[Rfam]
The family of this 81-nucleotide RNA is "c-di-GMP-I-GGC riboswitch aptamer". Gene Ontology term of the family: cyclic-di-GMP binding.

RNA sequence: ACCGAGAAAGGCAAACCCGUCGCAAGGCGGGGGCGCAAAGCCAAGGGCCCCUUUUGUCGAGGGGCAGCCUGGCUGCCGAUG
Numbered sequence: 001a002c003c004g005a006g007a008a009a010g011g012c013a014a015a016c017c018c019g020u021c022g023c024a025a026g027g028c029g030g031g032g033g034c035g036c037a038a039a040g041c042c043a044a045g046g047g048c049c050c051c052u053u054u055u056g057u058c059g060a061g062g063g064g065c066a067g068c069c070u071g072g073c074u075g076c077c078g079a080u081g
Stems, first nucleotide, its partner, number of pairs: 003078002011036002016031006034067001039074004044070003047065006